c-di-AMP riboswitch aptamer (ydaO/yuaA leader): a 178-nucleotide RNA sequence from Thermomonospora echinospora.
Nucleotides: 178
Base pairs, nucleotide, nucleotide: 011163012162013161014160018046020044021043022042023041024040025039026038027037028036029035047158048157049156050155051154052153057098099143100142101141107119108118109117110116122137123136124135125134
Number, partner (000 for none) and nucleotide at each position: 001000u002000c003000g004000a005000g006000c007000c008000g009000a010000c011163c012162g013161c014160c015000g016000a017000a018046u019000g020044u021043u022042c023041g024040c025039g026038g027037c028036g029035c030000a031000g032000c033000c034000g035029g036028c037027g038026u039025c040024g041023c042022g043021a044020a045000g046018a047158a048157c049156c050155g051154g052153g053000g054000a055000c056000c057098c058000a059000c060000c061000g062000c063000g064000g065000a066000a067000g068000c069000u070000c071000a072000g073000g074000g075000g076000a077000c078000g079000c080000c081000c082000c083000u084000g085000u086000g087000c088000c089000a090000a091000g092000c093000g094000u095000c096000u097000c098057g099143g100142g101141g102000u103000g104000a105000a106000u107119c108118c109117g110116c111000c112000g113000u114000g115000u116110g117109c118108g119107g120000u121000a122137g123136g124135g125134c126000g127000c128000c129000u130000c131000c132000u133000c134125g135124u136123c137122c138000g139000a140000a141101c142100c143099c144000g145000a146000c147000a148000g149000c150000u151000a152000a153052c154051c155050c156049g157048g158047u159000a160014g161013g162012c163011g164000g165000c166000u167000g168000u169000g170000g171000a172000g173000a174000g175000a176000c177000a178000u